Small nucleolar RNA Z161/Z228: a 90-nucleotide RNA from Ananas comosus.
The family's RNA type in Rfam is C/D-box small nucleolar RNA.
Nucleotides: 090
Stems, first nucleotide, its partner, number of pairs: 001090004049058003
Number, partner (000 for none) and nucleotide at each position: 001090g002089g003088g004087c005000a006000a007000u008000a009000u010000g011000a012000u013000g014000a015000g016000a017000a018000u019000a020000u021000g022000u023000a024000a025000a026000u027000u028000a029000c030000u031000c032000a033000c034000g035000a036000c037000g038000g039000u040000c041000g042000u043000c044000u045000g046000a047000g048000g049058c050057a051056c052000u053000u054000a055000u056051g057050u058049g059000u060000c061000u062000a063000c064000g065000c066000u067000g068000a069000u070000g071000c072000a073000a074000a075000a076000a077000u078000c079000u080000c081000u082000c083000u084000g085000a086000u087004g088003c089002c090001u

The match comes from Rfam's covariance-model search (68 bits). Rfam links the family to the GO terms nucleolus and RNA processing. Clan: SNORD35 clan. NCBI's taxonomy places the organism under Eukaryota, Streptophyta, Petrosaviidae, Bromeliaceae, Ananas.